[Rfam]
RNA sequence: GCAGCGCGAAUGGGAGAGUGCGGAAUACCGCCGCCGAAGGCGCAAUCCACCCGGAAACGCUCAGGCACAAGGACCGUUCGUGAAUU
Number, nucleotide and partner (000 for none) at each position: 001g000002c000003a000004g000005c000006g081007c080008g079009a078010a077011u076012g075013g074014g000015a000016g000017a000018g000019u000020g031021c030022g029023g028024a000025a000026u000027a000028c023029c022030g021031c020032c000033g066034c065035c064036g062037a061038a000039g000040g060041c059042g058043c000044a000045a000046u054047c053048c000049a000050c000051c000052c000053g047054g046055a000056a000057a000058c042059g041060c040061u037062c036063a000064g035065g034066c033067a000068c000069a000070a000071g000072g000073a000074c013075c012076g011077u010078u009079c008080g007081u006082g000083a000084a000085u000086u000
This 86-nucleotide RNA from Candidatus Accumulibacter cognatus belongs to the Rfam family "Glycine riboswitch aptamer". Pairs were carried over by alignment from the consensus structure. Rfam links the family to the GO term glycine biosynthetic process. Taxonomically the source falls in Candidatus Accumulibacter (Bacteria, Pseudomonadati, Pseudomonadota, Betaproteobacteria). The match comes from Rfam's covariance-model search (65 bits).